[Rfam]
Notes
The record is a 98-nucleotide RNA sequence from Nicotiana attenuata, which matches "MIR6152 microRNA precursor family" in Rfam.
RNA sequence: AGCUAAUCAAUUGUUGUAUUCGAGUGUAUUCACGGCGUGAAAUAGGGGAUUACACUGUUUUUAAACGGAAAGUGAAUCAAUUAACAUAAUAGACUGCU
Numbered sequence: 001a002g003c004u005a006a007u008c009a010a011u012u013g014u015u016g017u018a019u020u021c022g023a024g025u026g027u028a029u030u031c032a033c034g035g036c037g038u039g040a041a042a043u044a045g046g047g048g049a050u051u052a053c054a055c056u057g058u059u060u061u062u063a064a065a066c067g068g069a070a071a072g073u074g075a076a077u078c079a080a081u082u083a084a085c086a087u088a089a090u091a092g093a094c095u096g097c098u
Base pairs, nucleotide, nucleotide: 002097003096011092012091013090014089015088016087017086019084020083022082023081025079026078028077029076030075031074032073033072036067037066038065039061040060041059042058043057044056045055